This 84-nucleotide RNA from Salix brachista belongs to the Rfam family "Small nucleolar RNA SNORD34". About the family: snoRNA U34 is found in intron 5 of the ribosomal protein L13a gene in humans. Lineage of the source: Eukaryota > Streptophyta > Euphyllophyta > Magnoliopsida > Salix. Rfam links the family to the GO terms RNA processing and nucleolus.
[Rfam]
RNA sequence: AGAGGCCUGUGAUGAUUUGAAAUUUGCCUACAUUGUCUGAUCAUCUAAUUGAUGACUGAGACAUGAAUUACUUCUGAGGCUUCC
Numbered sequence: 001a002g003a004g005g006c007c008u009g010u011g012a013u014g015a016u017u018u019g020a021a022a023u024u025u026g027c028c029u030a031c032a033u034u035g036u037c038u039g040a041u042c043a044u045c046u047a048a049u050u051g052a053u054g055a056c057u058g059a060g061a062c063a064u065g066a067a068u069u070a071c072u073u074c075u076g077a078g079g080c081u082u083c084c
Stems, first nucleotide, its partner, number of pairs: 002083001004081004